[Rfam]
RNA sequence: UUGCGUGCUCUGGGGUCGGUGAAACUCCGAGCCGGCGGUGACUGGUCCGAAGCAUCCGCUUCGGUGCAGAAGCCCGCGACCCGUCCACAGCCAGUGGACGGUUGACCAGGUGGGAUUCCUGGGCCGACGGUCAAAGUCCGGAUGGGAAGUGCACGCAC
Numbered sequence: 001u002u003g004c005g006u007g008c009u010c011u012g013g014g015g016u017c018g019g020u021g022a023a024a025c026u027c028c029g030a031g032c033c034g035g036c037g038g039u040g041a042c043u044g045g046u047c048c049g050a051a052g053c054a055u056c057c058g059c060u061u062c063g064g065u066g067c068a069g070a071a072g073c074c075c076g077c078g079a080c081c082c083g084u085c086c087a088c089a090g091c092c093a094g095u096g097g098a099c100g101g102u103u104g105a106c107c108a109g110g111u112g113g114g115a116u117u118c119c120u121g122g123g124c125c126g127a128c129g130g131u132c133a134a135a136g137u138c139c140g141g142a143u144g145g146g147a148a149g150u151g152c153a154c155g156c157a158c
Stems, first nucleotide, its partner, number of pairs: 003156006010149001017029003031137002033126002035077004072124002081101002106122005128140003

The record is a 158-nucleotide sequence from Nocardioides sp. GY 10113, which matches "FMN riboswitch aptamer (RFN element)" in Rfam. Rfam links the family to the GO term FMN binding. The base pairs follow the family's consensus structure, which is taken from published work. Lineage of the source: Bacteria > Actinomycetota > Actinomycetes > Propionibacteriales > Nocardioides. A search with the family's covariance model found it, with a score of 90 bits.